[Rfam]
RNA sequence: AGGCAAUAAUGAUGAAAGAUUUAAAUUAUCUUAUAUGUAUGAUGAUUCAACACCUCCUACUCAUUCUGA
Dot-bracket structure: .....((.(................((..(..........)..))...............).)).....
Numbered sequence: 001a002g003g004c005a006a007u008a009a010u011g012a013u014g015a016a017a018g019a020u021u022u023a024a025a026u027u028a029u030c031u032u033a034u035a036u037g038u039a040u041g042a043u044g045a046u047u048c049a050a051c052a053c054c055u056c057c058u059a060c061u062c063a064u065u066c067u068g069a
Stems, first nucleotide, its partner, number of pairs: 006064002009061001026045002030041001
A member of the RNA family "Small nucleolar RNA Z105" from Populus trichocarpa, 69 nucleotides long. On this family, see Chen et al., Nucleic Acids Res 2003: "The high diversity of snoRNAs in plants: identification and comparative study of 120 snoRNA genes from Oryza sativa". Pairs were carried over by alignment from the consensus structure, which was predicted with CMfinder.